[Rfam]
RNA: SAM riboswitch aptamer (S box leader)
RNA sequence: CUCUUAUCAAGAGUGGUGGAGGGACUGGCCCGAUGAAACCCGGCAACCGGCAUUUAUAUGCGUCUGGUGCCAAAUCCUGCAGGUUAGAUUAUUCUAACCUGAGAGAUGAGAG
Numbered sequence: 001c002u003c004u005u006a007u008c009a010a011g012a013g014u015g016g017u018g019g020a021g022g023g024a025c026u027g028g029c030c031c032g033a034u035g036a037a038a039c040c041c042g043g044c045a046a047c048c049g050g051c052a053u054u055u056a057u058a059u060g061c062g063u064c065u066g067g068u069g070c071c072a073a074a075u076c077c078u079g080c081a082g083g084u085u086a087g088a089u090u091a092u093u094c095u096a097a098c099c100u101g102a103g104a105g106a107u108g109a110g111a112g
Stems, first nucleotide, its partner, number of pairs: 001112008013041001015040003021031003025079001027077002042071004047067002049064003075104001080101008